[Rfam]
RNA sequence: ACGCGCAGCAGCUUGACCCAGAUGCCGAUCAGCGGCAGGUUGAGCACCACGAGCAUCAGGUUGCCGAUCCACAUCGAGGCGAUGAGGCCCCAGAAGAGCUCGGGGUGGCUGGUCAUGACCUGCGGACC
Number, nucleotide and partner (000 for none) at each position: 001a000002c000003g018004c000005g000006c015007a014008g013009c000010a000011g000012c000013u008014u007015g006016a000017c000018c003019c000020a000021g000022a000023u000024g000025c000026c000027g127028a000029u125030c124031a000032g000033c122034g121035g120036c000037a000038g114039g113040u112041u000042g000043a000044g000045c107046a106047c105048c104049a000050c102051g101052a100053g099054c098055a000056u097057c096058a000059g000060g000061u093062u092063g091064c000065c000066g088067a000068u086069c000070c000071a000072c084073a083074u082075c081076g000077a000078g000079g000080c000081g075082a074083u073084g072085a000086g068087g000088c066089c000090c000091c063092a062093g061094a000095a000096g057097a056098g054099c053100u052101c051102g050103g000104g048105g047106u046107g045108g000109c000110u000111g000112g040113u039114c038115a000116u000117g000118a000119c000120c035121u034122g033123c000124g030125g029126a000127c027128c000
The family of this 128-nucleotide RNA sequence from Bordetella genomosp. 5 is "Ruegeria cis8 sRNA". Taxonomically the source falls in Bordetella (Bacteria, Pseudomonadati, Betaproteobacteria, Burkholderiales). On this family, see Rivers et al., Front Microbiol 2016: "Experimental Identification of Small Non-Coding RNAs in the Model Marine Bacterium Ruegeria pomeroyi DSS-3".